Notes:
The record is a 31-nucleotide RNA sequence from Owenia fusiformis, which matches "Iron response element II" in Rfam. Gene Ontology term of the family: response to iron ion. It is annotated as a cis-regulatory element.
RNA sequence: UUUAUUUCAGUAGCAGUGUCUAUUAAAUAAU
Numbered sequence: 001u002u003u004a005u006u007u008c009a010g011u012a013g014c015a016g017u018g019u020c021u022a023u024u025a026a027a028u029a030a031u
Stems, first nucleotide, its partner, number of pairs: 002030006009024005014018001